[Rfam]
RNA sequence: UGGGCAGUAUCCUGAAGGAACUGCACCUUGGAAGUCUAUAAAACUAAAAGGUAUCUGCCUAGAUCCGUCAAACGGACCGGGACAGAGGG
Numbered sequence: 001u002g003g004g005c006a007g008u009a010u011c012c013u014g015a016a017g018g019a020a021c022u023g024c025a026c027c028u029u030g031g032a033a034g035u036c037u038a039u040a041a042a043a044c045u046a047a048a049a050g051g052u053a054u055c056u057g058c059c060u061a062g063a064u065c066c067g068u069c070a071a072a073c074g075g076a077c078c079g080g081g082a083c084a085g086a087g088g089g
Stems, first nucleotide, its partner, number of pairs: 002027002004024005010019002055085003058081003062077001064076003
Dot-bracket structure: .(((((((.((......))))))).))...........................((((((.(.(((.......)))).))).)))....

This 89-nucleotide sequence from Neobacillus rhizophilus belongs to the Rfam family "pan motif". The base pairs follow the family's consensus structure, which is taken from published work. The organism belongs to Neobacillus, within Bacteria. A search with the family's covariance model found it, with a score of 68 bits.